[Rfam]
RNA sequence: UGAGCUGGCCAGACGGCCGCGUCGAGCCCUCGGGCUCGCCGAGGAACGUCCGGGCUCCACAGGGCAGGGUGGUGGGUAACACCCACCCGGGGUGACCCGCGGGACAGUGCCACAGAGAGAAGACCGCCUCGCCCGCCCUUCGGGGUGAGCGGGGUAAGGGUGAAACGGUGGUGUAAGAGACCACCAGCGUGCCGGGCGACCGGUGCGGCUAGGUAAACCCCACCCGGAGCAAGGCCAGACAGGGAGCGUUCGAGGGCUGCUCGCCCGAGCUCCCGGGUAGGCCGCUGGAGGCGUGCGGCAACGUACGUCGUAGAUGGAUGGCCGUCACCCGCGCGGGGGCAACCGCGCGCGGGCACAGAACCCGGCGUAUCGGCCAGCUCAUCCG
Numbered sequence: 001u002g003a004g005c006u007g008g009c010c011a012g013a014c015g016g017c018c019g020c021g022u023c024g025a026g027c028c029c030u031c032g033g034g035c036u037c038g039c040c041g042a043g044g045a046a047c048g049u050c051c052g053g054g055c056u057c058c059a060c061a062g063g064g065c066a067g068g069g070u071g072g073u074g075g076g077u078a079a080c081a082c083c084c085a086c087c088c089g090g091g092g093u094g095a096c097c098c099g100c101g102g103g104a105c106a107g108u109g110c111c112a113c114a115g116a117g118a119g120a121a122g123a124c125c126g127c128c129u130c131g132c133c134c135g136c137c138c139u140u141c142g143g144g145g146u147g148a149g150c151g152g153g154g155u156a157a158g159g160g161u162g163a164a165a166c167g168g169u170g171g172u173g174u175a176a177g178a179g180a181c182c183a184c185c186a187g188c189g190u191g192c193c194g195g196g197c198g199a200c201c202g203g204u205g206c207g208g209c210u211a212g213g214u215a216a217a218c219c220c221c222a223c224c225c226g227g228a229g230c231a232a233g234g235c236c237a238g239a240c241a242g243g244g245a246g247c248g249u250u251c252g253a254g255g256g257c258u259g260c261u262c263g264c265c266c267g268a269g270c271u272c273c274c275g276g277g278u279a280g281g282c283c284g285c286u287g288g289a290g291g292c293g294u295g296c297g298g299c300a301a302c303g304u305a306c307g308u309c310g311u312a313g314a315u316g317g318a319u320g321g322c323c324g325u326c327a328c329c330c331g332c333g334c335g336g337g338g339g340c341a342a343c344c345g346c347g348c349g350c351g352g353g354c355a356c357a358g359a360a361c362c363c364g365g366c367g368u369a370u371c372g373g374c375c376a377g378c379u380c381a382u383c384c385g
Stems, first nucleotide, its partner, number of pairs: 001381010011370001012326007020041002023038006046368003050365005055229004062262004067225005072086005087101001088099004102220002107218002109214003124159002126155007134147005167185006187209001188207008233283004242274006254266004290309008

A member of the RNA family "Bacterial RNase P class A" from Cellulomonas sp. WB94, 385 nucleotides long. The organism belongs to Cellulomonas, within Bacteria. It is annotated as a ribozyme. Ribonuclease P (RNase P) is a ubiquitous endoribonuclease, found in archaea, bacteria and eukarya as well as chloroplasts and mitochondria.